[Rfam]
RNA sequence: GGUUUAAUUACCCAAGUUUGAGGUAAUUGAAAUGUUUCGGCCAGAGUUUCGGCUACUGUGGCUUGAAGUUAAAAUUUUGGAACUCCUGCAAUUUGUG
Numbered sequence: 001g002g003u004u005u006a007a008u009u010a011c012c013c014a015a016g017u018u019u020g021a022g023g024u025a026a027u028u029g030a031a032a033u034g035u036u037u038c039g040g041c042c043a044g045a046g047u048u049u050c051g052g053c054u055a056c057u058g059u060g061g062c063u064u065g066a067a068g069u070u071a072a073a074a075u076u077u078u079g080g081a082a083c084u085c086c087u088g089c090a091a092u093u094u095g096u097g
Stems, first nucleotide, its partner, number of pairs: 003031010035068004040062003087097003

Shown here is a 97-nucleotide RNA from Loa loa, a member of the family "SL1 RNA". For this family Rfam cites "Trans-spliced leader RNA, 5S-rRNA genes and novel variant orphan spliced-leader of the lymphatic filarial nematode Wuchereria bancrofti, and a sensitive polymerase chain reaction based detection assay" (Dassanayake et al., Gene, 2001). The family is grouped with related families in Rfam's "SL clan". The organism belongs to Loa, within Eukaryota. Rfam describes the family as follows. This family represents the SL1 RNA. SL1 is commonly located in the spacer region between 5S-rRNA genes where it is involved in trans-splicing. Trans-splicing is a form of RNA processing. The acquisition of a spliced leader from a SL RNA is a intra-molecular reaction which precisely joins exons derived from separately transcribed RNAs. This mechanism of mRNA maturation has been shown to occur in a number of lower eukaryotes and is commonplace in nematodes.